Makes More Granules Regulator RNA (mmgR): a 78-nucleotide sequence from Aurantiacibacter atlanticus. It is annotated as a small RNA. Rfam describes the family as follows. SuhB later renamed mmgR (makes more granules regulator) was a putative non-coding RNA found multiple times in the Agrobacterium tumefaciens genome and related alpha-proteobacteria. The base pairs follow the family's consensus structure.
[Rfam]
RNA sequence: UCUCCCUGCCUUUCAGGCAUCCUCUCCCAAAACUUCCAAGGCCCGGUCGGUUUCGAUCGGGCCUUUUUUUGUCUGCGC
Numbered sequence: 001u002c003u004c005c006c007u008g009c010c011u012u013u014c015a016g017g018c019a020u021c022c023u024c025u026c027c028c029a030a031a032a033c034u035u036c037c038a039a040g041g042c043c044c045g046g047u048c049g050g051u052u053u054c055g056a057u058c059g060g061g062c063c064u065u066u067u068u069u070u071g072u073c074u075g076c077g078c
Stems, first nucleotide, its partner, number of pairs: 008018004040063009